[Rfam]
RNA sequence: AUAAUGAUACUUCCACUUAGUCCUAGGUAUCCCAUGGAGAGUGGCUUCCACAUUGUGGGAGAGGUUAAAGUCCUAUGA
Number, nucleotide and partner (000 for none) at each position: 001a000002u000003a000004a000005u000006g000007a000008u000009a000010c000011u000012u075013c044014c043015a042016c041017u040018u039019a000020g000021u000022c000023c000024u000025a000026g000027g000028u000029a000030u000031c000032c000033c000034a000035u000036g000037g000038a000039g018040a017041g016042u015043g014044g013045c061046u060047u059048c000049c057050a056051c055052a000053u000054u000055g051056u050057g049058g000059g047060a046061g045062a074063g073064g072065u000066u000067a000068a000069a000070g000071u000072c064073c063074u062075a012076u000077g000078a000
The record is a 78-nucleotide sequence from Clostridium sp. BL8, which matches "pemK RNA" in Rfam. The source organism's lineage runs through Bacteria, Bacillati, Bacillota, Clostridia and Clostridium. The match comes from Rfam's covariance-model search (53 bits).